[Rfam]
RNA sequence: CCCUUUGCAUGCGGUCGCCGCACACUCUAUAUUUGGAUCCGCCGGUUCGCCGGCUAUGACGCUAAACCCUGCCUGGAAUAAGCGUCGUGGACCCGGGGGCAGUACCCGGCGCCUCCACCACUUCGGGCUCCGCCGUCGUCUGGAUCAACGGCGCGCGGGGUCUCACGGGGGCGAACCAGGUUCGACACGCGUGGUAAAGAGACAGGUUGCGUUCGGCAUGGCACCACCGUCAUCGGGCCAUAUGCAAUAGUUGCCAACGACAACUAUGCUCCGGAAGCCGUCGCUGCGUAAUGCGGUGCUGGUGACCGACUCUAAAGUCCCGGGUUCUUAGCAGACUCGGGCGGGGUUCGGGGGGCACCCGCCAACAGAAGCCCCCCAU
Numbered sequence: 001c002c003c004u005u006u007g008c009a010u011g012c013g014g015u016c017g018c019c020g021c022a023c024a025c026u027c028u029a030u031a032u033u034u035g036g037a038u039c040c041g042c043c044g045g046u047u048c049g050c051c052g053g054c055u056a057u058g059a060c061g062c063u064a065a066a067c068c069c070u071g072c073c074u075g076g077a078a079u080a081a082g083c084g085u086c087g088u089g090g091a092c093c094c095g096g097g098g099g100c101a102g103u104a105c106c107c108g109g110c111g112c113c114u115c116c117a118c119c120a121c122u123u124c125g126g127g128c129u130c131c132g133c134c135g136u137c138g139u140c141u142g143g144a145u146c147a148a149c150g151g152c153g154c155g156c157g158g159g160g161u162c163u164c165a166c167g168g169g170g171g172c173g174a175a176c177c178a179g180g181u182u183c184g185a186c187a188c189g190c191g192u193g194g195u196a197a198a199g200a201g202a203c204a205g206g207u208u209g210c211g212u213u214c215g216g217c218a219u220g221g222c223a224c225c226a227c228c229g230u231c232a233u234c235g236g237g238c239c240a241u242a243u244g245c246a247a248u249a250g251u252u253g254c255c256a257a258c259g260a261c262a263a264c265u266a267u268g269c270u271c272c273g274g275a276a277g278c279c280g281u282c283g284c285u286g287c288g289u290a291a292u293g294c295g296g297u298g299c300u301g302g303u304g305a306c307c308g309a310c311u312c313u314a315a316a317g318u319c320c321c322g323g324g325u326u327c328u329u330a331g332c333a334g335a336c337u338c339g340g341g342c343g344g345g346g347u348u349c350g351g352g353g354g355g356c357a358c359c360c361g362c363c364a365a366c367a368g369a370a371g372c373c374c375c376c377c378a379u
Stems, first nucleotide, its partner, number of pairs: 041054005058213005068206004073201002083191003087188003093109005110173007214229003219240003224236002344360004350377006
The record is a 379-nucleotide RNA sequence from Roseospira visakhapatnamensis, which matches "Alphaproteobacteria transfer-messenger RNA" in Rfam. The base pairs follow the family's consensus structure, which is taken from published work. The literature on the family includes a 1996 paper in RNA by Williams and Bartel, "Phylogenetic analysis of tmRNA secondary structure". A search with the family's covariance model found it, with a score of 272 bits. Rfam classes the family as a non-coding RNA gene.